Shown here is a 92-nucleotide RNA from Callipepla squamata, a member of the family "Small nucleolar RNA SNORD35". NCBI's taxonomy places the organism under Eukaryota, Craniata, Euteleostomi, Sauropsida, Callipepla. U35 is a C/D box snoRNA located in intron 6 of ribosomal protein L13A and intron 3 of ribosomal protein S11 in humans and at homologous positions in mouse and chicken ribosomal protein genes. U35 guides the methylation of 2'-O-ribose sites in 28S rRNA.
RNA sequence: UGGUGGUGAUGUCUGAACUCACGAUGGUCUUCAGAGUCCCCGUUGGUGAAGGGGCUGCUGACAAAGCCUGUGGCUGUUGCUGAACCAGCAGG
Numbered sequence: 001u002g003g004u005g006g007u008g009a010u011g012u013c014u015g016a017a018c019u020c021a022c023g024a025u026g027g028u029c030u031u032c033a034g035a036g037u038c039c040c041c042g043u044u045g046g047u048g049a050a051g052g053g054g055c056u057g058c059u060g061a062c063a064a065a066g067c068c069u070g071u072g073g074c075u076g077u078u079g080c081u082g083a084a085c086c087a088g089c090a091g092g
Stems, first nucleotide, its partner, number of pairs: 001087004